[Rfam]
The record is a 126-nucleotide RNA from Pseudescherichia vulneris, which matches "Phenylalanine leader peptide" in Rfam. For this family Rfam cites "Nucleotide sequence of the leader region of the phenylalanine operon of Escherichia coli" (Zurawski et al., Proc Natl Acad Sci U S A, 1978).

RNA sequence: CAUGAAACAGACGCCGUUUUUCUUCGCACGCUUUUUUACCUUCCCCUGAAUGGGAGGCGUUUCGUCGUGUAAGAGUAUGUGCGAAGACGAACAGCAAGGCCUCCCAAACCGGGGGGCCUUUUUUUA
Number, nucleotide and partner (000 for none) at each position: 001c000002a000003u000004g000005a000006a000007a000008c000009a000010g000011a000012c000013g000014c000015c000016g092017u091018u090019u089020u000021u087022c086023u085024u084025c083026g082027c081028a080029c079030g078031c000032u000033u075034u074035u000036u072037u071038a070039c069040c000041u000042u055043c054044c053045c052046c000047u000048g000049a000050a000051u000052g045053g044054g043055a042056g066057g065058c064059g063060u000061u000062u000063c059064g058065u057066c056067g000068u000069g039070u038071a037072a036073g000074a034075g033076u000077a000078u030079g029080u028081g027082c026083g025084a024085a023086g022087a021088c000089g019090a018091a017092c016093a000094g000095c000096a120097a119098g118099g117100c116101c115102u114103c113104c112105c111106a000107a000108a000109c000110c000111g105112g104113g103114g102115g101116g100117c099118c098119u097120u096121u000122u000123u000124u000125u000126a000
Background: By type it is a cis-regulatory leader.